[Rfam]
Nucleotides: 237
Base pairs, nucleotide, nucleotide: 010236011235012234017229018228020226023222024221026220027219028218030215031214034211035210039172040171042169044166045165046164047163048162051159052158057090058089059088060087061086062085063084065082066081069079070078071077094155095154096153097152098151106146107145108143112139113138114137115136116135118134119133120132121131122130123129124128174209175208176206178204179203180202181201183199184198185197186196187195188194
Number, partner (000 for none) and nucleotide at each position: 001000g002000u003000g004000a005000g006000g007000u008000g009000a010236u011235g012234a013000c014000g015000a016000a017229g018228u019000u020226u021000a022000u023222c024221c025000a026220u027219u028218c029000u030215c031214u032000g033000a034211g035210u036000g037000c038000a039172g040171u041000g042169g043000u044166g045165c046164u047163g048162c049000c050000c051159u052158c053000c054000u055000g056000c057090a058089g059088c060087a061086c062085c063084c064000u065082g066081a067000u068000u069079c070078c071077u072000g073000u074000u075000c076000u077071a078070g079069g080000c081066u082065c083000u084063g085062g086061g087060u088059g089058c090057u091000g092000c093000g094155c095154a096153g097152c098151c099000u100000c101000c102000a103000g104000a105000g106146a107145c108143c109000c110000u111000c112139c113138a114137g115136u116135c117000u118134c119133c120132c121131a122130g123129u124128g125000u126000c127000c128124u129123a130122c131121u132120g133119g134118g135116g136115g137114c138113u139112g140000c141000u142000g143108g144000g145107g146106u147000g148000u149000g150000u151098g152097g153096c154095u155094g156000g157000g158052g159051g160000c161000c162048g163047c164046g165045g166044u167000u168000c169042u170000g171040g172039c173000a174209g175208g176206g177000u178204u179203g180202g181201a182000g183199c184198c185197u186196c187195u188194c189000u190000u191000u192000g193000c194188g195187g196186g197185g198184g199183g200000c201181u202180c203179c204178a205000u206176c207000c208175u209174c210035a211034c212000u213000g214031a215030g216000a217000u218028g219027a220026g221024g222023g223000a224000u225000a226020a227000u228018g229017u230000c231000u232000g233000a234012u235011c236010a237000c